[Rfam]
Small nucleolar RNA SNORD46: a 109-nucleotide RNA from Takifugu flavidus. The literature on the family includes a 1996 paper in J Mol Biol by Nicoloso et al., "Intron-encoded, antisense small nucleolar RNAs: the characterization of nine novel species points to their direct role as guides for the 2'-O-ribose methylation of rRNAs". From the family's description: U40 is a C/D box small nucleolar RNA, also known as snoZ153 in plants. The human sequence has also been annotated in the sequence databases as U46. U40 is encoded in intron 2 of the ribosomal protein S8 gene in human, and is hypothesised to guide methylation of 2'-O-ribose residues on 28S ribosomal RNA. This family represents vertebrate U40. Rfam links the family to the GO terms RNA processing and nucleolus. Rfam classes the family as a C/D-box small nucleolar RNA.
RNA sequence: GCUGUGGGUGAUGAACGUGUGACCUUAGGUUUGUCUUUUUUUGGACCGUUUUGGUCCAAAACCUUGGGCUUACCUAUGAAAGGACUUGUCAUAGUUACUCUGACACUGU
Numbered sequence: 001g002c003u004g005u006g007g008g009u010g011a012u013g014a015a016c017g018u019g020u021g022a023c024c025u026u027a028g029g030u031u032u033g034u035c036u037u038u039u040u041u042u043g044g045a046c047c048g049u050u051u052u053g054g055u056c057c058a059a060a061a062c063c064u065u066g067g068g069c070u071u072a073c074c075u076a077u078g079a080a081a082g083g084a085c086u087u088g089u090c091a092u093a094g095u096u097a098c099u100c101u102g103a104c105a106c107u108g109u
Base pairs, nucleotide, nucleotide: 001109002108004106005105006104
Dot-bracket structure: ((.(((.................................................................................................))).))